Background:
The record is an 87-nucleotide RNA from Macaca nemestrina, which matches "mir-515 microRNA precursor family" in Rfam. The match comes from Rfam's covariance-model search (84 bits). Pairs were carried over by alignment from the consensus structure, which was predicted with RNAalifold.
[Rfam]
RNA sequence: UCUUGUGCUGUGACCCUUUGGAGGGAAGCACUUUCUGUUGUCUGAAAACAAAGAAUGUGCAUCCUUUCAGAGGGUUACUCUUUGAGA
Numbered sequence: 001u002c003u004u005g006u007g008c009u010g011u012g013a014c015c016c017u018u019u020g021g022a023g024g025g026a027a028g029c030a031c032u033u034u035c036u037g038u039u040g041u042c043u044g045a046a047a048a049c050a051a052a053g054a055a056u057g058u059g060c061a062u063c064c065u066u067u068c069a070g071a072g073g074g075u076u077a078c079u080c081u082u083u084g085a086g087a
Stems, first nucleotide, its partner, number of pairs: 001087005007081001010078005016072003020068007028060004033055003038052002